[Rfam]
Nucleotides: 178
Stems, first nucleotide, its partner, number of pairs: 137174004145168004
Number, partner (000 for none) and nucleotide at each position: 001000a002000a003000u004000a005000g006000c007000c008000g009000a010000a011000a012000a013000u014000g015000a016000c017000c018000c019000c020000a021000g022000g023000g024000u025000u026000a027000a028000g029000a030000g031000u032000a033000g034000g035000a036000g037000a038000g039000g040000u041000a042000a043000u044000c045000u046000g047000u048000c049000u050000g051000a052000g053000c054000u055000g056000g057000u058000g059000c060000g061000u062000u063000a064000a065000g066000g067000g068000a069000u070000c071000a072000u073000a074000a075000a076000u077000u078000c079000c080000u081000c082000c083000c084000c085000a086000g087000a088000a089000c090000a091000u092000c093000g094000c095000c096000u097000u098000g099000a100000a101000a102000a103000c104000c105000a106000g107000a108000g109000c110000c111000a112000a113000a114000g115000c116000c117000g118000c119000a120000a121000c122000c123000c124000c125000c126000a127000a128000u129000a130000a131000g132000g133000u134000c135000a136000a137174g138173u139172g140171a141000a142000u143000a144000c145168c146167c147166a148165a149000u150000a151000u152000a153000g154000u155000c156000g157000u158000c159000a160000u161000u162000u163000u164000a165148u166147u167146g168145g169000a170000a171140u172139c173138g174137u175000c176000c177000c178000a